[Rfam]
RNA sequence: GAGUCUAACAUGCCUGCGAGUGUUUGGGUGUUAAACCCGAGCGCGUAAUGAAAGUGAAAGUUGAGAUCCCUGUCGUGGGGAGCAUCGACGCCCGGAGCAGAACUUUUGGGACGCAUCCGCGGUUGAGCAUGUAUGUUGGGA
Numbered sequence: 001g002a003g004u005c006u007a008a009c010a011u012g013c014c015u016g017c018g019a020g021u022g023u024u025u026g027g028g029u030g031u032u033a034a035a036c037c038c039g040a041g042c043g044c045g046u047a048a049u050g051a052a053a054g055u056g057a058a059a060g061u062u063g064a065g066a067u068c069c070c071u072g073u074c075g076u077g078g079g080g081a082g083c084a085u086c087g088a089c090g091c092c093c094g095g096a097g098c099a100g101a102a103c104u105u106u107u108g109g110g111a112c113g114c115a116u117c118c119g120c121g122g123u124u125g126a127g128c129a130u131g132u133a134u135g136u137u138g139g140g141a
Stems, first nucleotide, its partner, number of pairs: 005139009015129003020044003025039005048055002060089005067081003091122002093119003097114002103108001
Description:
This 141-nucleotide part of an RNA from Mycena chlorophos belongs to the Rfam family "Eukaryotic large subunit ribosomal RNA". Its family is annotated with structural constituent of ribosome and ribosome in the Gene Ontology. Lineage of the source: Eukaryota > Dikarya > Basidiomycota > Marasmiineae > Mycena.